[Rfam]
RNA: drz-agam-2-2 ribozyme
Organism: Anopheles sinensis
RNA sequence: UCCCCUGUUCCCCGGGCCCACAUCCGACCCCUCUUGAAGGCUACCAUAGACUCUCAUCCCCAACUCCUACUCAAUACGUCCGCGAUGUACAGAACGGUAACUUGUCACCUAGAUAUCCAAGCUUGGGUACACGACGAAACCCACUCCUUUGGGCGGAUGGGCGGCAAGGCUGAAUUGAGAGGG
Numbered sequence: 001u002c003c004c005c006u007g008u009u010c011c012c013c014g015g016g017c018c019c020a021c022a023u024c025c026g027a028c029c030c031c032u033c034u035u036g037a038a039g040g041c042u043a044c045c046a047u048a049g050a051c052u053c054u055c056a057u058c059c060c061c062a063a064c065u066c067c068u069a070c071u072c073a074a075u076a077c078g079u080c081c082g083c084g085a086u087g088u089a090c091a092g093a094a095c096g097g098u099a100a101c102u103u104g105u106c107a108c109c110u111a112g113a114u115a116u117c118c119a120a121g122c123u124u125g126g127g128u129a130c131a132c133g134a135c136g137a138a139a140c141c142c143a144c145u146c147c148u149u150u151g152g153g154c155g156g157a158u159g160g161g162c163g164g165c166a167a168g169g170c171u172g173a174a175u176u177g178a179g180a181g182g183g
Stems, first nucleotide, its partner, number of pairs: 005092004014061003022054001025049001065183004070179006076088003080097002101168006108161003115158004124143005146153002